[Rfam]
RNA sequence: GUGCUUGCAGGUGCAGCACCAUCAAGAUUCACAUCGUCGAGUUCAUCCUAAAAGAGAGAGAGAGAGUGAGAGAGAGAGAGGGAUCGAGGUGUGGCUGACUAUAUGCGAUGAGAAUCUUGAUGAUGCUGCAUCAGCAAACGC
Numbered sequence: 001g002u003g004c005u006u007g008c009a010g011g012u013g014c015a016g017c018a019c020c021a022u023c024a025a026g027a028u029u030c031a032c033a034u035c036g037u038c039g040a041g042u043u044c045a046u047c048c049u050a051a052a053a054g055a056g057a058g059a060g061a062g063a064g065a066g067u068g069a070g071a072g073a074g075a076g077a078g079a080g081g082g083a084u085c086g087a088g089g090u091g092u093g094g095c096u097g098a099c100u101a102u103a104u105g106c107g108a109u110g111a112g113a114a115u116c117u118u119g120a121u122g123a124u125g126c127u128g129c130a131u132c133a134g135c136a137a138a139c140g141c
Stems, first nucleotide, its partner, number of pairs: 010132009020122011032110006
Record summary
mir-172 microRNA precursor family: a 141-nucleotide sequence from Oryza brachyantha. A search with the family's covariance model found it, with a score of 80 bits. Rfam's curators write: mir-172 has been experimentally verified in Arabidopsis thaliana. This family is thought to target mRNAs coding for APETALA2-like transcription factors. The mature sequence is excised from the 3' arm of the hairpin.